Small nucleolar RNA snoR99: a 98-nucleotide sequence from Panicum hallii.
Rfam 15.1 lists 733 matches to the family in 222 species.
On this family, see Marker et al., Curr Biol 2002: "Experimental RNomics: identification of 140 candidates for small non-messenger RNAs in the plant Arabidopsis thaliana".

RNA sequence: GUGCCUGUGGGAUGAACAGGUCCCAACAUUUACUUCCAUUUUUUCACUUUGUCAGCUAAUAGACACAUGUUUAGCUGAUCAUUAAGAUUGGAAAAUGC
Numbered sequence: 001g002u003g004c005c006u007g008u009g010g011g012a013u014g015a016a017c018a019g020g021u022c023c024c025a026a027c028a029u030u031u032a033c034u035u036c037c038a039u040u041u042u043u044u045c046a047c048u049u050u051g052u053c054a055g056c057u058a059a060u061a062g063a064c065a066c067a068u069g070u071u072u073a074g075c076u077g078a079u080c081a082u083u084a085a086g087a088u089u090g091g092a093a094a095a096u097g098c
Stems, first nucleotide, its partner, number of pairs: 035092004040087001051079008